[Rfam]
RNA sequence: AACUGCUGUGUCCAAUUCAGCUGGAGAUCUGUAGUAACGAAUAAUAGUUUAAUAUCAUCAGCUGGCCCAGAUUACAAUCACAGCAAUUAGCUACAACUGUUAAGUCUAAUUAAGACUAAUAGUUUAAUUAAGGAGAUCUUUGGAUGUAGCAUAUUG
Numbered sequence: 001a002a003c004u005g006c007u008g009u010g011u012c013c014a015a016u017u018c019a020g021c022u023g024g025a026g027a028u029c030u031g032u033a034g035u036a037a038c039g040a041a042u043a044a045u046a047g048u049u050u051a052a053u054a055u056c057a058u059c060a061g062c063u064g065g066c067c068c069a070g071a072u073u074a075c076a077a078u079c080a081c082a083g084c085a086a087u088u089a090g091c092u093a094c095a096a097c098u099g100u101u102a103a104g105u106c107u108a109a110u111u112a113a114g115a116c117u118a119a120u121a122g123u124u125u126a127a128u129u130a131a132g133g134a135g136a137u138c139u140u141u142g143g144a145u146g147u148a149g150c151a152u153a154u155u156g
Stems, first nucleotide, its partner, number of pairs: 002078001004076002018064007026056003093147003097143002105133003109129001
RNA: Small nucleolar RNA SNORA5